Description: This 59-nucleotide RNA from Rhodococcus sp. AD45 belongs to the Rfam family "msiK RNA". The match comes from Rfam's covariance-model search (52 bits). Rfam 15.1 lists 1,374 matches to the family in 1,364 species.

[Rfam]
RNA sequence: UACUCUCGCCCACUCACUCGGAUCGUCGGGCACGUUCCUGCCCGUGAAGGGAAUCACCA
Numbered sequence: 001u002a003c004u005c006u007c008g009c010c011c012a013c014u015c016a017c018u019c020g021g022a023u024c025g026u027c028g029g030g031c032a033c034g035u036u037c038c039u040g041c042c043c044g045u046g047a048a049g050g051g052a053a054u055c056a057c058c059a
Stems, first nucleotide, its partner, number of pairs: 010051002014047003027044006